Source information: The family of this 69-nucleotide sequence from Triplophysa rosa is "Small nucleolar RNA SNORD18". The organism belongs to Triplophysa, within Eukaryota. Rfam classes the family as a C/D-box small nucleolar RNA. Gene Ontology terms of the family: RNA processing and nucleolus.
RNA sequence: UGACAGUGAUGAGUUACACUUCGGGUCCGUGUUUAUGAACACAAUGAUUUCUUUAGAAGUUCUGAGUUG
Numbered sequence: 001u002g003a004c005a006g007u008g009a010u011g012a013g014u015u016a017c018a019c020u021u022c023g024g025g026u027c028c029g030u031g032u033u034u035a036u037g038a039a040c041a042c043a044a045u046g047a048u049u050u051c052u053u054u055a056g057a058a059g060u061u062c063u064g065a066g067u068u069g
Base pairs, nucleotide, nucleotide: 001069002068003067004066